[Rfam]
RNA sequence: CCCCUAAGGGGAAGUGAAGACCCCGUUGAGCUUUACUGCAGCCUGUAGCUGGGUUGUGGUCUUGGAUGCGCAGCGUAGGUAGGAGGCGUAGAAGCUCCCGCUCCGGCGGGAGUGGAGCCGCCAAUGAGACACUACCCUUCUGAGACUACGACCCUAACUCGGAAACGAGGACAACUAUAGGUGGGCAGUUUGGGUGGGGCGCCACGCCCUUGAAAAGAUAUCAAGGGCGCCCAAUGGUUGACUCAUGUGGGUCGGAAACCCACAGUGGAGUGCAAGAGCAUAAGUCAGCCUGACUGGAUUUCGCACAAUAAGAAAUCCUGGGACGAAAGUCUGGUCUAGCGAACCACUACGCCCUCUUGGUGAGGGCUAUUGACUACAGAAAAGCUACCACAGGGAUAACAGAGUCGUCGCCGGCAAGAGUACAUAUCGACCCGGCGGCUUGCUACCUCGAUGUCGGUUCUUUCCAUCCUGGCCGUGCAGCAGCGGCCAAGGGUGAGGUUGUUCGCCUAUUAAAGGAGAUCGUGAGCUGGGUUUAGACCGUCGUGAGGCAGGUCGGUUACUAUCUAUUAGGGGUGUCUU
Numbered sequence: 001c002c003c004c005u006a007a008g009g010g011g012a013a014g015u016g017a018a019g020a021c022c023c024c025g026u027u028g029a030g031c032u033u034u035a036c037u038g039c040a041g042c043c044u045g046u047a048g049c050u051g052g053g054u055u056g057u058g059g060u061c062u063u064g065g066a067u068g069c070g071c072a073g074c075g076u077a078g079g080u081a082g083g084a085g086g087c088g089u090a091g092a093a094g095c096u097c098c099c100g101c102u103c104c105g106g107c108g109g110g111a112g113u114g115g116a117g118c119c120g121c122c123a124a125u126g127a128g129a130c131a132c133u134a135c136c137c138u139u140c141u142g143a144g145a146c147u148a149c150g151a152c153c154c155u156a157a158c159u160c161g162g163a164a165a166c167g168a169g170g171a172c173a174a175c176u177a178u179a180g181g182u183g184g185g186c187a188g189u190u191u192g193g194g195u196g197g198g199g200c201g202c203c204a205c206g207c208c209c210u211u212g213a214a215a216a217g218a219u220a221u222c223a224a225g226g227g228c229g230c231c232c233a234a235u236g237g238u239u240g241a242c243u244c245a246u247g248u249g250g251g252u253c254g255g256a257a258a259c260c261c262a263c264a265g266u267g268g269a270g271u272g273c274a275a276g277a278g279c280a281u282a283a284g285u286c287a288g289c290c291u292g293a294c295u296g297g298a299u300u301u302c303g304c305a306c307a308a309u310a311a312g313a314a315a316u317c318c319u320g321g322g323a324c325g326a327a328a329g330u331c332u333g334g335u336c337u338a339g340c341g342a343a344c345c346a347c348u349a350c351g352c353c354c355u356c357u358u359g360g361u362g363a364g365g366g367c368u369a370u371u372g373a374c375u376a377c378a379g380a381a382a383a384g385c386u387a388c389c390a391c392a393g394g395g396a397u398a399a400c401a402g403a404g405u406c407g408u409c410g411c412c413g414g415c416a417a418g419a420g421u422a423c424a425u426a427u428c429g430a431c432c433c434g435g436c437g438g439c440u441u442g443c444u445a446c447c448u449c450g451a452u453g454u455c456g457g458u459u460c461u462u463u464c465c466a467u468c469c470u471g472g473c474c475g476u477g478c479a480g481c482a483g484c485g486g487c488c489a490a491g492g493g494u495g496a497g498g499u500u501g502u503u504c505g506c507c508u509a510u511u512a513a514a515g516g517a518g519a520u521c522g523u524g525a526g527c528u529g530g531g532u533u534u535a536g537a538c539c540g541u542c543g544u545g546a547g548g549c550a551g552g553u554c555g556g557u558u559a560c561u562a563u564c565u566a567u568u569a570g571g572g573g574u575g576u577c578u579u
Base pairs, nucleotide, nucleotide: 001573002572003571004570005569006568007567010565011564012563014560015559022394023393025391027390028389029386030385031384032383033382035189036188037187038186042181043180044179045178046177047176048175051154052153053152054151055150056149057148058147059146060145061144062143063142064141065140066139068137078136079135080134081133082132085119086118087117097110098109099108100107101106158169159168160167161166192205193203194202195201206228207227208226209225210224211223231334232333237289238288239287240286241285242284243269244268246264247263248262249261250260251259270279271278294320296318297317298316299315300314301313302312322331324329345372346371348369349368351367352366353365354364355363403444404443405442407441408438409437410436411435412434413433414432418428419427455530456528457527458526459525460522461519462518463517464516465515468493469492472487473486474485475484476483496508497507498506499505536554537553538552539551540549541548542547